[Rfam]
RNA sequence: UGGUAGAUGCACCCUGAUUGUUUUCCCCGGCUCCGGCCGGGGAUUUUUUUU
Numbered sequence: 001u002g003g004u005a006g007a008u009g010c011a012c013c014c015u016g017a018u019u020g021u022u023u024u025c026c027c028c029g030g031c032u033c034c035g036g037c038c039g040g041g042g043a044u045u046u047u048u049u050u051u
Stems, first nucleotide, its partner, number of pairs: 002013003024043008
A member of the RNA family "Nitrogen stress-induced RNA 1" from filamentous cyanobacterium CCP5, 51 nucleotides long. Pairs were carried over by alignment from the consensus structure. Lineage of the source: Bacteria > Bacillati > Cyanobacteriota.